The family of this 47-nucleotide RNA sequence from Actinidia chinensis is "Plastid-ycf3 group II-D1 intron". The family has 385 seed sequences and 1,488 matches in Rfam 15.1. Rfam describes the family as follows. Plastid rpl16 is a non-coding RNA (ncRNA) recognised in plastids. It was recognised in and intronic region of a ribosome rpl16 gene.
RNA sequence: ACUCCUUCUGUCGUGUAUCCUCGAUCAAUGCAGCCUCAGAUGCUCUA
Numbered sequence: 001a002c003u004c005c006u007u008c009u010g011u012c013g014u015g016u017a018u019c020c021u022c023g024a025u026c027a028a029u030g031c032a033g034c035c036u037c038a039g040a041u042g043c044u045c046u047a
Base pairs, nucleotide, nucleotide: 010025011024012023013022032044033043034042